[Rfam]
RNA sequence: GUAUUCUUUCGCGCAUGAACCGCAUCCUGUCCGAACUUCGACGUCGCCGCUCGCCGCUCCCAUAGGGGCGCCGCUGGCUUCGUCACGGAUUCGCGCGAACCACGCGCACGCAGUUCGAAUCAUGAAAGCCACGGCAUGCCGUGGCUUUUUG
Dot-bracket structure: ......((.(((((................(((.....(((.(((((.((...(...........)...)).)).))).)))...)))....)))))...................))......((((((((((....))))))))))...
RNA: Burkholderia sRNA 7